[Rfam]
RNA sequence: GGGGAUAAACGCGCACGAAAUAAGCGGACUGGACCCGGGUGCGAUUCCCGGCGGCUCCACCAAAACCUUUCCCCCGCUCCGGCGGGGCGGUGCGGGGCCGAUCAGCAUCGACAGACGUGUAAAGGUGUUGCUUUCUCCCGGCCUGGCCCACCGUUUCGGGCUUUAAACUAACUGCGAACGAUAACUUCGCUGAAGAAGUUCGUCUGGCCGCGUAA
Numbered sequence: 001g002g003g004g005a006u007a008a009a010c011g012c013g014c015a016c017g018a019a020a021u022a023a024g025c026g027g028a029c030u031g032g033a034c035c036c037g038g039g040u041g042c043g044a045u046u047c048c049c050g051g052c053g054g055c056u057c058c059a060c061c062a063a064a065a066c067c068u069u070u071c072c073c074c075c076g077c078u079c080c081g082g083c084g085g086g087g088c089g090g091u092g093c094g095g096g097g098c099c100g101a102u103c104a105g106c107a108u109c110g111a112c113a114g115a116c117g118u119g120u121a122a123a124g125g126u127g128u129u130g131c132u133u134u135c136u137c138c139c140g141g142c143c144u145g146g147c148c149c150a151c152c153g154u155u156u157c158g159g160g161c162u163u164u165a166a167a168c169u170a171a172c173u174g175c176g177a178a179c180g181a182u183a184a185c186u187u188c189g190c191u192g193a194a195g196a197a198g199u200u201c202g203u204c205u206g207g208c209c210g211c212g213u214a215a
Base pairs, nucleotide, nucleotide: 001138002137003136004135005134013128014127015126016125025117026116029114030113031112035051036050037049038048039047052100053099054098055097056096057095058094139153140152141151
Dot-bracket structure: (((((.......((((........((..(((...(((((.......)))))(((((((...................................)))))))...........))).)).......)))).....)))))(((.........)))..............................................................

Shown here is a 215-nucleotide RNA from Phenylobacterium parvum, a member of the family "permuted transfer-messenger RNA". Taxonomically the source falls in Phenylobacterium (Bacteria, Pseudomonadota, Alphaproteobacteria, Caulobacteraceae). It is annotated as a non-coding RNA gene. A search with the family's covariance model found it, with a score of 121 bits.